[Rfam]
RNA sequence: GGCCGGAUCCCGCCGAACCGCCGACGCCCCUGGGUCGAGGCGGACCGGGGACCCACCGUUUUCCUGGGGUGAGUCCUGCCUGCGCUCCUCCGGGUGCAGGCAGGUAGGGCGCCGUCCGGCCCGAACCCGUCAGCUAACUCGGUAGGCGGUCGCGAGGAUGGGA
Numbered sequence: 001g002g003c004c005g006g007a008u009c010c011c012g013c014c015g016a017a018c019c020g021c022c023g024a025c026g027c028c029c030c031u032g033g034g035u036c037g038a039g040g041c042g043g044a045c046c047g048g049g050g051a052c053c054c055a056c057c058g059u060u061u062u063c064c065u066g067g068g069g070u071g072a073g074u075c076c077u078g079c080c081u082g083c084g085c086u087c088c089u090c091c092g093g094g095u096g097c098a099g100g101c102a103g104g105u106a107g108g109g110c111g112c113c114g115u116c117c118g119g120c121c122c123g124a125a126c127c128c129g130u131c132a133g134c135u136a137a138c139u140c141g142g143u144a145g146g147c148g149g150u151c152g153c154g155a156g157g158a159u160g161g162g163a
Base pairs, nucleotide, nucleotide: 011148012147013146014145018043019042020041021040022039044143045142046141047140048139049138054066055065067128068127069126075104076103077102078101079100080099081098082097083096084095085094086093087092107122108121109120110119

The family of this 163-nucleotide RNA from Geodermatophilus ruber is "c-di-AMP riboswitch aptamer (ydaO/yuaA leader)". Rfam describes the family as follows. This family represents a conserved RNA structure found upstream of the ydaO and yuaA genes in Bacillus subtilis and related genes in other bacteria. The source organism's lineage runs through Bacteria, Bacillati, Actinomycetes, Geodermatophilales and Geodermatophilus. The family has 106 seed sequences and 7,607 matches in Rfam 15.1.